Record summary: Bacillaceae-1 RNA: a 67-nucleotide RNA sequence from Filibacter tadaridae. It is annotated as a small RNA. Pairs were carried over by alignment from the consensus structure, which is taken from published work. The source organism's lineage runs through Bacteria, Bacillati, Bacillota, Caryophanaceae and Filibacter. Rfam 15.1 lists 5,721 matches to the family in 247 species.
RNA sequence: UCUUAAGGAAGCCAACCUAAGUUCGCGGCGUCCUGCCGCAACGGUUGCAUGACCUACAUCCUGUAGG
Numbered sequence: 001u002c003u004u005a006a007g008g009a010a011g012c013c014a015a016c017c018u019a020a021g022u023u024c025g026c027g028g029c030g031u032c033c034u035g036c037c038g039c040a041a042c043g044g045u046u047g048c049a050u051g052a053c054c055u056a057c058a059u060c061c062u063g064u065a066g067g
Base pairs, nucleotide, nucleotide: 013047014046015045016044017043025039026038027037028036029035053067054066055065056064057063